[Rfam]
RNA sequence: CUCUGGAAAGUAGAGAACCUUGGUUCUCUCACCGACGGGGCUAAGCUGUCUGCGGGCAGUCAAUUCUCUCAGGUUCAAGCGACAGAG
Number, nucleotide and partner (000 for none) at each position: 001c087002u086003c085004u084005g083006g000007a000008a000009a000010g000011u000012a029013g028014a027015g026016a000017a000018c000019c000020u000021u000022g000023g000024u000025u000026c015027u014028c013029u012030c000031a074032c073033c072034g070035a069036c000037g000038g068039g067040g066041c000042u000043a000044a000045g060046c059047u058048g057049u000050c000051u000052g000053c000054g000055g000056g000057c048058a047059g046060u045061c000062a000063a000064u000065u000066c040067u039068c038069u035070c034071a000072g033073g032074u031075u000076c000077a000078a000079g000080c000081g000082a000083c005084a004085g003086a002087g001

Shown here is an 87-nucleotide RNA from Rhodobiaceae bacterium UBA7378, a member of the family "Glycine riboswitch aptamer".
It scores 34 bits against the family's covariance model.